transfer-messenger RNA: a 380-nucleotide RNA from Haloechinothrix alba. Rfam links the family to the GO term RNA catabolic process. Pairs were carried over by alignment from the consensus structure, which is taken from published work. The organism belongs to Haloechinothrix, within Bacteria. A search with the family's covariance model found it, with a score of 139 bits. By type it is a non-coding RNA gene. Bacterial tmRNA, also known as 10Sa RNA or SsrA, is named for its dual tRNA and mRNA-like properties. Its role is to liberate the mRNA from a stalled ribosome. To accomplish this part of the tmRNA is used as a reading frame that ends in a translation stop signal.

RNA sequence: GGGGGUGAACGGUUUCGACUCUGUUCGUUGAAUCAGGGGAAGCGUGCCGGUGCAGGCGAGAGACCACCGUUAAGCGUCGUCGCACAUCAAUAAGCGCCAACAAACAAGAAGCGCGCCAGGAUCAGUUCGCGCUCGCUGCGUGAGCUAGCUUGAUCCUUGUCGACCCGGGGAUGCCUCCGACCCGGUCGUCGGCAUCAGCUAGGAGGACUUACCACUGAGGUUGGUCGCGGACCUGAGUGGGACAUCGUACAGCGACUGGGCCCGUCACACCGGCUUGUUCGCGUGACCGGUGGGGCCGAGUAGAGGCACAGCGAACUGCGCACGGAGAAGUCCUGGUGAAGCAGCAGAGGACCCGGGUUCGAUUCCCGGCACCUCCACAA
Numbered sequence: 001g002g003g004g005g006u007g008a009a010c011g012g013u014u015u016c017g018a019c020u021c022u023g024u025u026c027g028u029u030g031a032a033u034c035a036g037g038g039g040a041a042g043c044g045u046g047c048c049g050g051u052g053c054a055g056g057c058g059a060g061a062g063a064c065c066a067c068c069g070u071u072a073a074g075c076g077u078c079g080u081c082g083c084a085c086a087u088c089a090a091u092a093a094g095c096g097c098c099a100a101c102a103a104a105c106a107a108g109a110a111g112c113g114c115g116c117c118a119g120g121a122u123c124a125g126u127u128c129g130c131g132c133u134c135g136c137u138g139c140g141u142g143a144g145c146u147a148g149c150u151u152g153a154u155c156c157u158u159g160u161c162g163a164c165c166c167g168g169g170g171a172u173g174c175c176u177c178c179g180a181c182c183c184g185g186u187c188g189u190c191g192g193c194a195u196c197a198g199c200u201a202g203g204a205g206g207a208c209u210u211a212c213c214a215c216u217g218a219g220g221u222u223g224g225u226c227g228c229g230g231a232c233c234u235g236a237g238u239g240g241g242a243c244a245u246c247g248u249a250c251a252g253c254g255a256c257u258g259g260g261c262c263c264g265u266c267a268c269a270c271c272g273g274c275u276u277g278u279u280c281g282c283g284u285g286a287c288c289g290g291u292g293g294g295g296c297c298g299a300g301u302a303g304a305g306g307c308a309c310a311g312c313g314a315a316c317u318g319c320g321c322a323c324g325g326a327g328a329a330g331u332c333c334u335g336g337u338g339a340a341g342c343a344g345c346a347g348a349g350g351a352c353c354c355g356g357g358u359u360c361g362a363u364u365c366c367c368g369g370c371a372c373c374u375c376c377a378c379a380a
Stems, first nucleotide, its partner, number of pairs: 001376007019349007028340001032337007043324005048069005056083004131155001133153003158194006165185005173208001175206002178203001212240005218234003223257006259297005266292003272288002277316004284310002353369005